[Rfam]
RNA sequence: UAAUGCUUGUGAGGCAAAUUCUUCUCUCUCUAUGAUAGCUAAAUCUAAUUUUUCAAAAACACUUGAAAAUAAUAAUGAGCUUAUCACUGUAUA
Dot-bracket structure: ...(((.((..(.((..((.....(.(.(.(...................................).).)..)))..)).)..))..)))..
Source information: Rfam assigns this 93-nucleotide sequence from Macaca nemestrina to the family "MIR480 microRNA precursor family". On this family, see Lu et al., Plant Cell 2005: "Novel and mechanical stress-responsive MicroRNAs in Populus trichocarpa that are absent from Arabidopsis". Taxonomically the source falls in Macaca (Eukaryota, Craniata, Cercopithecoidea, Cercopithecidae). Gene Ontology terms of the family: RISC complex and miRNA-mediated post-transcriptional gene silencing.